RNA sequence: GGCCUCUAAUGAUGGAGCUCUGCCCAGGGAGUACCAUGACGAGAUUGGGAUGUAUUCGUACUGUCUGAUGGGGCC
Numbered sequence: 001g002g003c004c005u006c007u008a009a010u011g012a013u014g015g016a017g018c019u020c021u022g023c024c025c026a027g028g029g030a031g032u033a034c035c036a037u038g039a040c041g042a043g044a045u046u047g048g049g050a051u052g053u054a055u056u057c058g059u060a061c062u063g064u065c066u067g068a069u070g071g072g073g074c075c
Base pairs, nucleotide, nucleotide: 001075002074003073004072005071006070011065012064013063014062015061017059018058021054022053023052024049025048027046028045032041
Source information: Small nucleolar RNA ZL2: a 75-nucleotide RNA from Jaculus jaculus. Pairs were carried over by alignment from the consensus structure, which was predicted with RNAfold. The family has 6 seed sequences and 126 matches in Rfam 15.1. A reference for the family is Kishore et al. (2013), "Insights into snoRNA biogenesis and processing from PAR-CLIP of snoRNA core proteins and small RNA sequencing", Genome Biol. The source organism's lineage runs through Eukaryota, Bilateria, Teleostomi, Euteleostomi and Jaculus. Rfam classes the family as a C/D-box small nucleolar RNA.